[Rfam]
RNA sequence: AUAUGCCUGGCUCCCUGUAUGCCAUCUGCAGAGCUUGUCGAAGAAAAUCGACGGUCCUUUGUAGAUGGCGUAUGAGGAGCCAAGCAUGC
Numbered sequence: 001a002u003a004u005g006c007c008u009g010g011c012u013c014c015c016u017g018u019a020u021g022c023c024a025u026c027u028g029c030a031g032a033g034c035u036u037g038u039c040g041a042a043g044a045a046a047a048u049c050g051a052c053g054g055u056c057c058u059u060u061g062u063a064g065a066u067g068g069c070g071u072a073u074g075a076g077g078a079g080c081c082a083a084g085c086a087u088g089c
Base pairs, nucleotide, nucleotide: 002088003087004086005085006084008082009081010080011079012078013077014076016074017073018072019071020070021069022068023067024066027063028062029061
Annotation:
Shown here is an 89-nucleotide RNA from Salvia splendens, a member of the family "mir-160 microRNA precursor family". The source organism's lineage runs through Eukaryota, Streptophytina, Euphyllophyta, Salviinae and core Calosphace. Gene Ontology terms of the family: miRNA-mediated post-transcriptional gene silencing and RISC complex.